[Rfam]
RNA: Acido-Lenti-1 RNA
Organism: Sulfuriroseicoccus oceanibius
RNA sequence: CCCACGGCUGCGCCGUGGGCUACGUUAGGACGCACCUCCGGUGCU
Numbered sequence: 001c002c003c004a005c006g007g008c009u010g011c012g013c014c015g016u017g018g019g020c021u022a023c024g025u026u027a028g029g030a031c032g033c034a035c036c037u038c039c040g041g042u043g044c045u
Base pairs, nucleotide, nucleotide: 001019002018003017004016005015006014007013008012032044033043034042035041036040